[Rfam]
RNA sequence: CCCCUCUAGAAACAAUAUCACACAUACAUCGUCACGUAUAUUGGGGUGCUCUUGCCCGGAGUCAAUAUACGGGAUGUAUGGAGGACUAAC
Numbered sequence: 001c002c003c004c005u006c007u008a009g010a011a012a013c014a015a016u017a018u019c020a021c022a023c024a025u026a027c028a029u030c031g032u033c034a035c036g037u038a039u040a041u042u043g044g045g046g047u048g049c050u051c052u053u054g055c056c057c058g059g060a061g062u063c064a065a066u067a068u069a070c071g072g073g074a075u076g077u078a079u080g081g082a083g084g085a086c087u088a089a090c
Base pairs, nucleotide, nucleotide: 023080024079025078026077027076028075029074030073035071036070037069038068039067040066041065042064043063048062049061050060051059052058
The family of this 90-nucleotide RNA sequence from Thioploca ingrica is "t44 RNA". The match comes from Rfam's covariance-model search (78 bits). Rfam classes the family as a small RNA. Rfam's curators write: This family consists of a number of bacterial RNA genes of between 135 and 170 bases in length. The family's consensus secondary structure was predicted with LocARNA. Taxonomically the source falls in Thioploca (Bacteria, Pseudomonadota, Gammaproteobacteria, Thiotrichaceae).